[Rfam]
The family of this 95-nucleotide RNA sequence from Microthlaspi erraticum is "Small nucleolar RNA R38".
The family has 19 seed sequences and 2,295 matches in Rfam 15.1.
It scores 58 bits against the family's covariance model.
Lineage of the source: Eukaryota > Euphyllophyta > rosids > malvids > Microthlaspi.
Gene Ontology terms of the family: RNA processing and nucleolus.
About the family: snoR38 is a C/D box small nucleolar RNA conserved across yeast, human, Arabidopsis and rice.
RNA sequence: UGUUGUGUAUGAUGAGAAACAAAAAUCAAAACACAGUUAUCCCUGGCUUAGGCUAUUGAAAGUCGAUGCUGAGUCUUUUGUAAUCUGACACGUUA
Numbered sequence: 001u002g003u004u005g006u007g008u009a010u011g012a013u014g015a016g017a018a019a020c021a022a023a024a025a026u027c028a029a030a031a032c033a034c035a036g037u038u039a040u041c042c043c044u045g046g047c048u049u050a051g052g053c054u055a056u057u058g059a060a061a062g063u064c065g066a067u068g069c070u071g072a073g074u075c076u077u078u079u080g081u082a083a084u085c086u087g088a089c090a091c092g093u094u095a
Base pairs, nucleotide, nucleotide: 001095002094004092005091006090007089